This 94-nucleotide RNA sequence from Branchiostoma belcheri belongs to the Rfam family "mir-2060 microRNA precursor family". Its family is annotated with RISC complex and miRNA-mediated post-transcriptional gene silencing in the Gene Ontology. Rfam 15.1 lists 3,696 matches to the family in 4 species. The source organism's lineage runs through Eukaryota, Bilateria, Leptocardii, Amphioxiformes and Branchiostoma.

RNA sequence: GAGUGUAUGUGUGUGGAUGGUGUUCAGCACCAAGGACAGGUAUGUUUACCUGUGUGUGGAUGGUGUUCAGCACCAAGGACAGGCACACUCCGUA
Numbered sequence: 001g002a003g004u005g006u007a008u009g010u011g012u013g014u015g016g017a018u019g020g021u022g023u024u025c026a027g028c029a030c031c032a033a034g035g036a037c038a039g040g041u042a043u044g045u046u047u048a049c050c051u052g053u054g055u056g057u058g059g060a061u062g063g064u065g066u067u068c069a070g071c072a073c074c075a076a077g078g079a080c081a082g083g084c085a086c087a088c089u090c091c092g093u094a
Base pairs, nucleotide, nucleotide: 004085005084006083008081009080010079018075019074020073021072022071023070024069026067027066028065029064030063031062032061034055036053037052038051039050040049041048042047